[Rfam]
RNA sequence: AGGUCUCUCUUAGUAGACCAGAUCGAGCCUAGGAGCUCUCUAGCUAGCAAAAGAACCCAC
Number, nucleotide and partner (000 for none) at each position: 001a000002g057003g056004u055005c000006u054007c053008u052009c000010u050011u049012a000013g000014u046015a045016g044017a000018c043019c000020a041021g040022a039023u000024c000025g038026a037027g036028c035029c000030u000031a000032g000033g000034a000035g028036c027037u026038c025039u022040c021041u020042a000043g018044c016045u015046a014047g000048c000049a011050a010051a000052a008053g007054a006055a004056c003057c002058c000059a000060c000

A member of the RNA family "Trans-activation response element (TAR)" from Lentivirus humimdef1, 60 nucleotides long. This family represents the HIV trans-activation response (TAR) element which is known to be required for the trans-activation of the viral promoter and for virus replication. The base pairs follow the family's consensus structure, which is taken from published work. The organism belongs to Lentivirus humimdef1, within Viruses. The literature on the family includes a 2003 paper in J Biol Chem by Kulinski et al., "The apical loop of the HIV-1 TAR RNA hairpin is stabilized by a cross-loop base pair".